[Rfam]
This 287-nucleotide RNA from Propithecus coquereli belongs to the Rfam family "Mason-Pfizer monkey virus packaging signal". The organism belongs to Propithecus, within Eukaryota. Rfam classes the family as a cis-regulatory element. This family represents a group of sequences that are related to the Mason-Pfizer monkey virus (MPMV) packaging signal. The packaging signal is located in the 5' UTR and is required for specific RNA encapsidation. Gene Ontology term of the family: viral genome packaging.

RNA sequence: UGGCGCCCAACGUGGGGCAGUGGAUACGAGGGGUCCAGUGAGGACGAGGACGCGUGGCGCCGGAGUUCGAGAAGUUCGAAGCGCAGAAAACGAAAGUCCUUCGACCGCCGCGGGAACCUGCCGCGCCGGAGUAAAAGGUGAGUGAGUGCGUCCGAAGAUGGGUCAGGAACUAAGUCAGCAUCAGCUUUAUGUUAAGCAGUUAAAAGAAGCUUUAAAGACACGAGGAGUAAAGGUUAAAGGACAAGACUUGUUUAAAUUUUUUGACUUUGUACAGGAUGUCUGCCCUU
Numbered sequence: 001u002g003g004c005g006c007c008c009a010a011c012g013u014g015g016g017g018c019a020g021u022g023g024a025u026a027c028g029a030g031g032g033g034u035c036c037a038g039u040g041a042g043g044a045c046g047a048g049g050a051c052g053c054g055u056g057g058c059g060c061c062g063g064a065g066u067u068c069g070a071g072a073a074g075u076u077c078g079a080a081g082c083g084c085a086g087a088a089a090a091c092g093a094a095a096g097u098c099c100u101u102c103g104a105c106c107g108c109c110g111c112g113g114g115a116a117c118c119u120g121c122c123g124c125g126c127c128g129g130a131g132u133a134a135a136a137g138g139u140g141a142g143u144g145a146g147u148g149c150g151u152c153c154g155a156a157g158a159u160g161g162g163u164c165a166g167g168a169a170c171u172a173a174g175u176c177a178g179c180a181u182c183a184g185c186u187u188u189a190u191g192u193u194a195a196g197c198a199g200u201u202a203a204a205a206g207a208a209g210c211u212u213u214a215a216a217g218a219c220a221c222g223a224g225g226a227g228u229a230a231a232g233g234u235u236a237a238a239g240g241a242c243a244a245g246a247c248u249u250g251u252u253u254a255a256a257u258u259u260u261u262u263g264a265c266u267u268u269g270u271a272c273a274g275g276a277u278g279u280c281u282g283c284c285c286u287u
Stems, first nucleotide, its partner, number of pairs: 006032003012027003039047001097140001099138001100136002105129002109125005147165002151162004171214003174210002221263008231249005273286003277282001